[Rfam]
A member of the RNA family "Ribosomal protein L10 leader" from Lysinibacillus composti, 146 nucleotides long. Rfam classes the family as a cis-regulatory leader. The match comes from Rfam's covariance-model search (75 bits).

RNA sequence: UGUGAAUAUCCAUUUGUACCGUAGACAGUAGGAGUGACUUGUCACUUAAUGAUCCUACCGAGGACACAGAAAUCGGAUUCUUUUAAGAUGAUGAAUUUUCCGCCUCUAGUCUACUUUUGUUGGCUAGAGGCUUUCUUUUGUCGGUA
Numbered sequence: 001u002g003u004g005a006a007u008a009u010c011c012a013u014u015u016g017u018a019c020c021g022u023a024g025a026c027a028g029u030a031g032g033a034g035u036g037a038c039u040u041g042u043c044a045c046u047u048a049a050u051g052a053u054c055c056u057a058c059c060g061a062g063g064a065c066a067c068a069g070a071a072a073u074c075g076g077a078u079u080c081u082u083u084u085a086a087g088a089u090g091a092u093g094a095a096u097u098u099u100c101c102g103c104c105u106c107u108a109g110u111c112u113a114c115u116u117u118u119g120u121u122g123g124c125u126a127g128a129g130g131c132u133u134u135c136u137u138u139u140g141u142c143g144g145u146a
Stems, first nucleotide, its partner, number of pairs: 028058006034045003102131010